A member of the RNA family "Whalefall-1 RNA" from Inquilinus limosus, 52 nucleotides long.
RNA sequence: AUACCUCUCCCUGGGGAGAGGUCGAAAUCGCGCAGCGAUUUCGGGUGAGGGA
Number, nucleotide and partner (000 for none) at each position: 001a000002u000003a000004c021005c020006u019007c018008u017009c016010c015011c000012u000013g000014g000015g010016g009017a008018g007019a006020g005021g004022u000023c000024g042025a041026a040027a039028u038029c037030g036031c035032g000033c000034a000035g031036c030037g029038a028039u027040u026041u025042c024043g000044g000045g000046u000047g000048a000049g000050g000051g000052a000